[Rfam]
RNA sequence: UGGCGCCUGCGGCGGACCCGGCACGGCUUAUGAUGGACUUCGCAGGCAGCCAAGCCGUGUACGGUCUGGUACACCCCGGAAUCCUCCGGGCUUUAAUGCUUUCU
Numbered sequence: 001u002g003g004c005g006c007c008u009g010c011g012g013c014g015g016a017c018c019c020g021g022c023a024c025g026g027c028u029u030a031u032g033a034u035g036g037a038c039u040u041c042g043c044a045g046g047c048a049g050c051c052a053a054g055c056c057g058u059g060u061a062c063g064g065u066c067u068g069g070u071a072c073a074c075c076c077c078g079g080a081a082u083c084c085u086c087c088g089g090g091c092u093u094u095a096a097u098g099c100u101u102u103c104u
Base pairs, nucleotide, nucleotide: 005047006046007045008044009043010042011041013068014067015066017064018063021060022059023058024057025056026055027054028053036051038049039048075090076089077088078087079086080085

Source information
Shown here is a 104-nucleotide RNA, a member of the family "RT-5 RNA". Rfam's curators put it in the seed alignment. Rfam classes the family as a small RNA.